This 86-nucleotide RNA sequence from Winmispira thermophila belongs to the Rfam family "ZMP/ZTP riboswitch aptamer (pfl RNA motif)".
[Rfam]
RNA sequence: UAAUGAGCCGACGACUGGCGCCCUCCGAGGCGGAAUCGACCGCCGGGAAGUCUUUUCCUCCCCUGUCGCGCGCCUGGGCAGGGGGA
Numbered sequence: 001u002a003a004u005g006a007g008c009c010g011a012c013g014a015c016u017g018g019c020g021c022c023c024u025c026c027g028a029g030g031c032g033g034a035a036u037c038g039a040c041c042g043c044c045g046g047g048a049a050g051u052c053u054u055u056u057c058c059u060c061c062c063c064u065g066u067c068g069c070g071c072g073c074c075u076g077g078g079c080a081g082g083g084g085g086a
Stems, first nucleotide, its partner, number of pairs: 003059001005057003010052003015047002017074005030043004063081005

Pairs were carried over by alignment from the consensus structure, which is taken from published work.